Shown here is a 106-nucleotide sequence, a member of the family "DUF3577 RNA".
[Rfam]
RNA sequence: CGGAUCAUAAGGCAGCAUUGCUGUCGAAAUCGUCUGCAAUCCGGGCAAUGCCACGCCAGUGGAAUGACGACUGUUCCAAUCGCCGCAAUCUUGUUGCGGUAUCAAU
Numbered sequence: 001c002g003g004a005u006c007a008u009a010a011g012g013c014a015g016c017a018u019u020g021c022u023g024u025c026g027a028a029a030u031c032g033u034c035u036g037c038a039a040u041c042c043g044g045g046c047a048a049u050g051c052c053a054c055g056c057c058a059g060u061g062g063a064a065u066g067a068c069g070a071c072u073g074u075u076c077c078a079a080u081c082g083c084c085g086c087a088a089u090c091u092u093g094u095u096g097c098g099g100u101a102u103c104a105a106u
Stems, first nucleotide, its partner, number of pairs: 011025005030070005049064001051062004082100007
Dot-bracket structure: ..........(((((.....)))))....(((((..............(.((((....)))).).)))))...........(((((((.....)))))))......